The family of this 194-nucleotide sequence from Vitis vinifera is "MIR159 microRNA precursor family". Rfam's curators put it in the seed alignment. The family's consensus secondary structure was predicted with WAR. For this family Rfam cites "Computational identification of plant microRNAs and their targets, including a stress-induced miRNA" (Jones-Rhoades and Bartel, Mol Cell, 2004).
RNA sequence: GGUUUUGGAGUGGAGCUCCUUGAAGUCCAAUAGAGGGUCUUACUGGGUAGAUUGAGCUGCUGACUUAUGGAUCCCACAGCCCUAUCCCGUCAAUGGGGGGCAUUGGAUAGGCUUGUGGCUUGCAUAUCUCAGGAGCUGCAUUAUCCAAGUUUAGAUCCUUGUUUGGAUUGAAGGGAGCUCUACACCUCUCUCUC
Numbered sequence: 001g002g003u004u005u006u007g008g009a010g011u012g013g014a015g016c017u018c019c020u021u022g023a024a025g026u027c028c029a030a031u032a033g034a035g036g037g038u039c040u041u042a043c044u045g046g047g048u049a050g051a052u053u054g055a056g057c058u059g060c061u062g063a064c065u066u067a068u069g070g071a072u073c074c075c076a077c078a079g080c081c082c083u084a085u086c087c088c089g090u091c092a093a094u095g096g097g098g099g100g101c102a103u104u105g106g107a108u109a110g111g112c113u114u115g116u117g118g119c120u121u122g123c124a125u126a127u128c129u130c131a132g133g134a135g136c137u138g139c140a141u142u143a144u145c146c147a148a149g150u151u152u153a154g155a156u157c158c159u160u161g162u163u164u165g166g167a168u169u170g171a172a173g174g175g176a177g178c179u180c181u182a183c184a185c186c187u188c189u190c191u192c193u194c
Stems, first nucleotide, its partner, number of pairs: 013180008024169006036157001057135002060132003066126004074118001
The source organism's lineage runs through Eukaryota, Tracheophyta, Spermatophyta, Gunneridae and Vitis.